[Rfam]
RNA sequence: UUUAAUUUCAUGCUCCGAUUCAUGGGGCCUAAGUCUUUAGAGAUAUGGUCCGUGAACGACAGGGUGUACGGGGAAACCGGUGCGCCUCCCGGUUGGAAAGGAGCCUACUUUUGCUUAUG
Dot-bracket structure: ..((.......(((((..(((((((.(((...((((....))))..)))))))))).....((((((((.((....)).))))))))((.....))...))))).......))......
Numbered sequence: 001u002u003u004a005a006u007u008u009c010a011u012g013c014u015c016c017g018a019u020u021c022a023u024g025g026g027g028c029c030u031a032a033g034u035c036u037u038u039a040g041a042g043a044u045a046u047g048g049u050c051c052g053u054g055a056a057c058g059a060c061a062g063g064g065u066g067u068a069c070g071g072g073g074a075a076a077c078c079g080g081u082g083c084g085c086c087u088c089c090c091g092g093u094u095g096g097a098a099a100g101g102a103g104c105c106u107a108c109u110u111u112u113g114c115u116u117a118u119g
Stems, first nucleotide, its partner, number of pairs: 003113002012104005019056007027049003033044004062087008071078002088096002
A member of the RNA family "Molybdenum/Tungsten riboswitch aptamer (Moco RNA motif)" from Desulfoscipio geothermicus, 119 nucleotides long. The family's consensus secondary structure is taken from published work. Rfam 15.1 lists 1,248 matches to the family in 836 species.